[Rfam]
RNA: U4 spliceosomal RNA
RNA sequence: AGCUUUGCGCAGUGGCAGUAUUGUAGCCAAUGAGGUUUAUCCGAGGCGCGAUUAUUGCUAAGUCUCUAAUACCAGUAAUAAGCCUUGCAGACCAAUCCAUAUAGAAAAUUUUGCAUUCCCCUAUAAUAACUCAAUGACGGUCUUGGGA
Numbered sequence: 001a002g003c004u005u006u007g008c009g010c011a012g013u014g015g016c017a018g019u020a021u022u023g024u025a026g027c028c029a030a031u032g033a034g035g036u037u038u039a040u041c042c043g044a045g046g047c048g049c050g051a052u053u054a055u056u057g058c059u060a061a062g063u064c065u066c067u068a069a070u071a072c073c074a075g076u077a078a079u080a081a082g083c084c085u086u087g088c089a090g091a092c093c094a095a096u097c098c099a100u101a102u103a104g105a106a107a108a109u110u111u112u113g114c115a116u117u118c119c120c121c122u123a124u125a126a127u128a129a130c131u132c133a134a135u136g137a138c139g140g141u142c143u144u145g146g147g148a
Stems, first nucleotide, its partner, number of pairs: 020052005026047003034042002076104001078102003082098001085095003119147003